[Rfam]
RNA sequence: CCGAGGGUUCAGCCCCUCGUAGUCUAGAAGCGGUGCGUCACUGGCAACGGUGGGGUGCUAAGUGCUUUGACAAUGUAGCCACCCCUCGCGGGGUAUGUCUUUUUCCGUGAGGAAGAAGGGAUGAGUUCGGCAUUUGCGGCUGGGCGAGGCG
Numbered sequence: 001c002c003g004a005g006g007g008u009u010c011a012g013c014c015c016c017u018c019g020u021a022g023u024c025u026a027g028a029a030g031c032g033g034u035g036c037g038u039c040a041c042u043g044g045c046a047a048c049g050g051u052g053g054g055g056u057g058c059u060a061a062g063u064g065c066u067u068u069g070a071c072a073a074u075g076u077a078g079c080c081a082c083c084c085c086u087c088g089c090g091g092g093g094u095a096u097g098u099c100u101u102u103u104u105c106c107g108u109g110a111g112g113a114a115g116a117a118g119g120g121a122u123g124a125g126u127u128c129g130g131c132a133u134u135u136g137c138g139g140c141u142g143g144g145c146g147a148g149g150c151g
Stems, first nucleotide, its partner, number of pairs: 002019006027068005032059005038053006081094005098120002105112002126144006
A member of the RNA family "Group II catalytic intron D1-D4-7" from Duganella sp. CF517, 151 nucleotides long. The pairing is the family consensus, mapped onto this sequence. Its family is annotated with Group II intron splicing in the Gene Ontology. Group II introns are found in rRNA, tRNA and mRNA of organelles in fungi, plants and protists, and also in mRNA in bacteria.